[Rfam]
RNA sequence: CAGGGAAAGACCGGAGUGGUUCUCUGCUUUUCCUCCAGGGGUCUGUGAGCACAGUUUGCUCUAGAAGAAGCAGACCUUUGGAUGAAAAACACAAAACCA
Numbered sequence: 001c002a003g004g005g006a007a008a009g010a011c012c013g014g015a016g017u018g019g020u021u022c023u024c025u026g027c028u029u030u031u032c033c034u035c036c037a038g039g040g041g042u043c044u045g046u047g048a049g050c051a052c053a054g055u056u057u058g059c060u061c062u063a064g065a066a067g068a069a070g071c072a073g074a075c076c077u078u079u080g081g082a083u084g085a086a087a088a089a090c091a092c093a094a095a096a097c098c099a
Stems, first nucleotide, its partner, number of pairs: 001014001003012002017099003021095001023093001035081008044072003048060003